[Rfam]
RNA sequence: UGUAAUAUAUUGCUUAAUCUUUUUUCUAAGAACGGGGGACCCAAUUUUUACAGCGGACAUGUCCGUUUGGGGUGAAUCUAUGUAUGUUAGAGGGGCUUACUGUUUCCCUUAGUCCUAACCCGAAAGCUAACCUCGUCAGCAUUAAAGGAGACAAAA
Numbered sequence: 001u002g003u004a005a006u007a008u009a010u011u012g013c014u015u016a017a018u019c020u021u022u023u024u025u026c027u028a029a030g031a032a033c034g035g036g037g038g039a040c041c042c043a044a045u046u047u048u049u050a051c052a053g054c055g056g057a058c059a060u061g062u063c064c065g066u067u068u069g070g071g072g073u074g075a076a077u078c079u080a081u082g083u084a085u086g087u088u089a090g091a092g093g094g095g096c097u098u099a100c101u102g103u104u105u106c107c108c109u110u111a112g113u114c115c116u117a118a119c120c121c122g123a124a125a126g127c128u129a130a131c132c133u134c135g136u137c138a139g140c141a142u143u144a145a146a147g148g149a150g151a152c153a154a155a156a
Stems, first nucleotide, its partner, number of pairs: 011141004018031003032136006042069002070121003078090003093115004
This 156-nucleotide sequence from Cytobacillus kochii belongs to the Rfam family "c-di-AMP riboswitch aptamer (ydaO/yuaA leader)". It scores 80 bits against the family's covariance model. From the family's description: This family represents a conserved RNA structure found upstream of the ydaO and yuaA genes in Bacillus subtilis and related genes in other bacteria. NCBI's taxonomy places the organism under Bacteria, Bacillati, Caryophanales, Bacillaceae, Cytobacillus.